[Rfam]
RNA sequence: UUCGAGUAAUGCGGGUUGUAAUUGAUGAACAUGAAUCCACGAGCCUGGUCGAUGAUGUGAAAGAGCGGGUUCCAGGUGAACAUGAUGAGGAUGUUGAAGGGCAGGGUGUUGGCCACGAACAUCUUGCCCGACGCGAUCAUGUUGGCGCGCGC
Numbered sequence: 001u002u003c004g005a006g007u008a009a010u011g012c013g014g015g016u017u018g019u020a021a022u023u024g025a026u027g028a029a030c031a032u033g034a035a036u037c038c039a040c041g042a043g044c045c046u047g048g049u050c051g052a053u054g055a056u057g058u059g060a061a062a063g064a065g066c067g068g069g070u071u072c073c074a075g076g077u078g079a080a081c082a083u084g085a086u087g088a089g090g091a092u093g094u095u096g097a098a099g100g101g102c103a104g105g106g107u108g109u110u111g112g113c114c115a116c117g118a119a120c121a122u123c124u125u126g127c128c129c130g131a132c133g134c135g136a137u138c139a140u141g142u143u144g145g146c147g148c149g150c151g152c
Base pairs, nucleotide, nucleotide: 001034002033006030007029012024013023014022038054039053040051041050042049063152065150066149067148069081070080071079072078086145088143089142091140092139093138100129101128102126103125104124105123106122107121109118110117111116
RNA: Ruegeria cis2 sRNA